Description
Rfam assigns this 106-nucleotide RNA sequence from Echinops telfairi to the family "Y RNA". Pairs were carried over by alignment from the consensus structure, which is taken from published work. It is annotated as a non-coding RNA gene.
RNA sequence: GGCUGGUCCAAAGGUAGUGAGAUCUCACAACGAUUGCUUACAGUCAGUUACUGUUCGACCUAUUUAUCUACCCCCCCCCCUCACUACUGCACUUGACUAGUCUUAA
Number, nucleotide and partner (000 for none) at each position: 001g102002g101003c100004u099005g098006g097007u096008c095009c000010a094011a093012a000013g000014g090015u089016a085017g084018u083019g082020a081021g080022a000023u000024c000025u000026c000027a067028c000029a000030a064031c000032g000033a000034u000035u000036g000037c000038u000039u000040a000041c000042a000043g000044u000045c000046a000047g000048u000049u000050a000051c000052u000053g000054u000055u000056c000057g000058a000059c000060c000061u000062a000063u000064u030065u000066a000067u027068c000069u000070a000071c000072c000073c000074c000075c000076c000077c000078c000079c000080c021081u020082c019083a018084c017085u016086a000087c000088u000089g015090c014091a000092c000093u011094u010095g008096a007097c006098u005099a004100g003101u002102c001103u000104u000105a000106a000